[Rfam]
RNA sequence: CAACGUUCUCAGGGCGGGGUGCAAUUCCCCACCGGCGGUAAUUGCGCGCAAUGCGCAUAGCCCGCGAGCGCUUGGCAGGUCCGAAGGCUUCGGCAAACGACUUGGCAAGGUCAGCAGACCCGGUGUGAUCCCGGGGCCGACGGUCAUAGUCCGGAUGAAGAGAGAACGGGA
Number, nucleotide and partner (000 for none) at each position: 001c000002a000003a000004c168005g167006u166007u165008c164009u163010c162011a000012g000013g000014g000015c000016g000017g029018g028019g027020u000021g000022c000023a000024a000025u000026u000027c019028c018029c017030c000031a150032c149033c139034g138035g065036c064037g063038g062039u000040a000041a000042u000043u000044g000045c000046g000047c000048g000049c000050a000051a000052u000053g000054c000055g000056c000057a000058u000059a000060g137061c136062c038063c037064g036065c035066g000067a000068g115069c114070g000071c000072u000073u000074g000075g000076c000077a000078g000079g000080u000081c000082c000083g000084a000085a000086g000087g000088c000089u000090u000091c000092g000093g000094c000095a000096a000097a000098c000099g000100a000101c000102u000103u000104g000105g000106c000107a000108a000109g000110g000111u000112c000113a000114g069115c068116a000117g000118a000119c135120c134121c133122g132123g131124u000125g000126u000127g000128a000129u000130c000131c123132c122133g121134g120135g119136g061137c060138c034139g033140a000141c153142g152143g151144u000145c000146a000147u000148a000149g032150u031151c143152c142153g141154g000155a000156u000157g000158a000159a000160g000161a000162g010163a009164g008165a007166a006167c005168g004169g000170g000171a000
RNA: FMN riboswitch aptamer (RFN element)